[Rfam]
RNA sequence: UGGGGUGUGAGGAGCAAGUUUCAAAGAAAAGCGUUUGGGGUGGAAACACGGUAACACUCCCAGACGCUUUUCUAU
Numbered sequence: 001u002g003g004g005g006u007g008u009g010a011g012g013a014g015c016a017a018g019u020u021u022c023a024a025a026g027a028a029a030a031g032c033g034u035u036u037g038g039g040g041u042g043g044a045a046a047c048a049c050g051g052u053a054a055c056a057c058u059c060c061c062a063g064a065c066g067c068u069u070u071u072c073u074a075u
Base pairs, nucleotide, nucleotide: 025073026072027071028070029069032066033065037061038060039059040057041056042055

Description:
The family of this 75-nucleotide RNA sequence from Anabaena cylindrica is "Cyano-1 RNA". NCBI's taxonomy places the organism under Bacteria, Bacillati, Cyanobacteriota, Anabaena, Anabaena cylindrica. The base pairs follow the family's consensus structure, which is taken from published work. It is annotated as a small RNA. It scores 53 bits against the family's covariance model.